A member of the RNA family "U7 small nuclear RNA" from Rhinopithecus roxellana, 62 nucleotides long. NCBI's taxonomy places the organism under Eukaryota, Opisthokonta, Teleostomi, Eutheria, Rhinopithecus. The base pairs follow the family's consensus structure, which was predicted with PFOLD. It scores 38 bits against the family's covariance model.
RNA sequence: UGAAGUUACAGCUUUCAGAAUUUGUUUAGUGGGUUUUCUGGUUUUCACUUGAAAAUGCCCCG
Numbered sequence: 001u002g003a004a005g006u007u008a009c010a011g012c013u014u015u016c017a018g019a020a021u022u023u024g025u026u027u028a029g030u031g032g033g034u035u036u037u038c039u040g041g042u043u044u045u046c047a048c049u050u051g052a053a054a055a056u057g058c059c060c061c062g
Base pairs, nucleotide, nucleotide: 032059033058034057035054036053037052038051040049041048042047